[Rfam]
RNA sequence: AAAGUAGAGGUAGGUGCGAGAAAUGACGGGCAUCGUGCAAAUCGUUCAUUGUCUCCCAGCUACUUCAACUGUG
Numbered sequence: 001a002a003a004g005u006a007g008a009g010g011u012a013g014g015u016g017c018g019a020g021a022a023a024u025g026a027c028g029g030g031c032a033u034c035g036u037g038c039a040a041a042u043c044g045u046u047c048a049u050u051g052u053c054u055c056c057c058a059g060c061u062a063c064u065u066c067a068a069c070u071g072u073g
Stems, first nucleotide, its partner, number of pairs: 007066007015058002018055004022050005
Shown here is a 73-nucleotide RNA sequence from Caenorhabditis brenneri, a member of the family "mir-241 microRNA precursor family". Lineage of the source: Eukaryota > Eumetazoa > Nematoda > Rhabditomorpha > Caenorhabditis. Gene Ontology terms of the family: RISC complex and miRNA-mediated post-transcriptional gene silencing. Pairs were carried over by alignment from the consensus structure, which was predicted with RNAalifold. Rfam 15.1 lists 9 matches to the family in 8 species.